[Rfam]
A member of the RNA family "Fluoride riboswitch aptamer (crcB RNA motif)" from Pedobacter sp. Hv1, 66 nucleotides long. The match comes from Rfam's covariance-model search (46 bits). The base pairs follow the family's consensus structure, which is taken from published work.
Nucleotides: 066
Stems, first nucleotide, its partner, number of pairs: 010025004016057006036047002039044001
Number, partner (000 for none) and nucleotide at each position: 001000a002000g003000a004000c005000a006000a007000a008000a009000a010025g011024g012023a013022a014000a015000u016057g017056g018055u019054g020053u021052c022013u023012u024011c025010c026000u027000a028000c029000u030000u031000g032000a033000a034000c035000c036047g037046c038000c039044u040000u041000a042000a043000a044039a045000a046037g047036c048000u049000g050000a051000u052021g053020a054019c055018g056017c057016c058000u059000g060000g061000u062000u063000a064000u065000u066000a